[Rfam]
RNA sequence: GCAAUCUUGGCCUGUAGCCAAAAGUGACGCGCAAGCGCAUCCCGCUGAUGAUGUCUUGCGUAUAGUAGGUACUAAAUAGAGUCGCUAUUUAGUAGAUGGGAUAGUAAAUGUCAUGGACACUCACUUUAGUGAGGCUGACAUCACUCAAAGGCACCCAACA
Number, nucleotide and partner (000 for none) at each position: 001g000002c000003a000004a000005u000006c000007u021008u020009g019010g018011c017012c000013u000014g000015u000016a000017g011018c010019c009020a008021a007022a000023a000024g000025u000026g000027a000028c000029g061030c060031g059032c058033a057034a056035g055036c000037g000038c050039a000040u000041c000042c000043c000044g000045c000046u000047g000048a000049u000050g038051a000052u000053g000054u000055c035056u034057u033058g032059c031060g030061u029062a000063u000064a000065g000066u000067a000068g000069g000070u094071a093072c092073u091074a090075a089076a088077u087078a086079g085080a000081g000082u000083c000084g000085c079086u078087a077088u076089u075090u074091a073092g072093u071094a070095g000096a000097u000098g000099g000100g000101a000102u000103a000104g000105u000106a000107a000108a000109u140110g139111u138112c137113a136114u000115g000116g000117a000118c000119a000120c000121u000122c000123a000124c000125u000126u000127u000128a000129g000130u000131g000132a000133g000134g000135c000136u113137g112138a111139c110140a109141u000142c000143a000144c000145u000146c000147a000148a000149a000150g000151g000152c000153a000154c000155c000156c000157a000158a000159c000160a000
The family of this 160-nucleotide sequence from Vibrio sp. qd031 is "DABA-DC-AT RNA". By type it is a cis-regulatory element. A search with the family's covariance model found it, with a score of 67 bits. The family's consensus secondary structure is taken from published work. NCBI's taxonomy places the organism under Bacteria, Pseudomonadati, Pseudomonadota, Vibrionales, Vibrio.